[Rfam]
RNA: Small nucleolar RNA SNORD74
Organism: Pleuronectes platessa
RNA sequence: CUCAUUGCAGUGUGAUGAAACAAAUGUUGGUAGGGACAUCUGACUACUGUGAGGAAACGCCAACUUUCUGACCGCAUGGG
Numbered sequence: 001c002u003c004a005u006u007g008c009a010g011u012g013u014g015a016u017g018a019a020a021c022a023a024a025u026g027u028u029g030g031u032a033g034g035g036a037c038a039u040c041u042g043a044c045u046a047c048u049g050u051g052a053g054g055a056a057a058c059g060c061c062a063a064c065u066u067u068c069u070g071a072c073c074g075c076a077u078g079g080g
Base pairs, nucleotide, nucleotide: 001080002079003078004077005076